The record is a 77-nucleotide RNA sequence from Soehngenia longivitae, which matches "c-di-GMP-I riboswitch aptamer" in Rfam. The match comes from Rfam's covariance-model search (59 bits).
RNA sequence: UUUUCGAAAUGGCACACUUACCGUGAGGUAGGGUCGCAAAGCUACAGGGCCUUAAAAUAAGGCAGCCAGUUAUCGAA
Numbered sequence: 001u002u003u004u005c006g007a008a009a010u011g012g013c014a015c016a017c018u019u020a021c022c023g024u025g026a027g028g029u030a031g032g033g034u035c036g037c038a039a040a041g042c043u044a045c046a047g048g049g050c051c052u053u054a055a056a057a058u059a060a061g062g063c064a065g066c067c068a069g070u071u072a073u074c075g076a077a
Stems, first nucleotide, its partner, number of pairs: 012037002017032006040071004047067002049063003